[Rfam]
RNA sequence: GCGUCGGCUUAGCUCAGCGGUUAUAUCAGUGUACUGACGGUGCUUCGCGGCUCGAACCGCGGGCGCUGUCCGACGUUUUC
Numbered sequence: 001g002c003g004u005c006g007g008c009u010u011a012g013c014u015c016a017g018c019g020g021u022u023a024u025a026u027c028a029g030u031g032u033a034c035u036g037a038c039g040g041u042g043c044u045u046c047g048c049g050g051c052u053c054g055a056a057c058c059g060c061g062g063g064c065g066c067u068g069u070c071c072g073a074c075g076u077u078u079u080c
Stems, first nucleotide, its partner, number of pairs: 002075006012064004017060004026055002029052001
Description
The record is an 80-nucleotide RNA sequence from Conger conger, which matches "Vault RNA" in Rfam. The literature on the family includes a 2009 paper in Mol Biol Evol by Stadler et al., "Evolution of Vault RNAs". About the family: This family of RNAs are found as part of the enigmatic vault ribonucleoprotein complex. The complex consists of a major vault protein (MVP), two minor vault proteins (VPARP and TEP1), and several small untranslated RNA molecules. It has been suggested that the vault complex is involved in drug resistance. The family's consensus secondary structure is taken from published work. By type it is a non-coding RNA gene.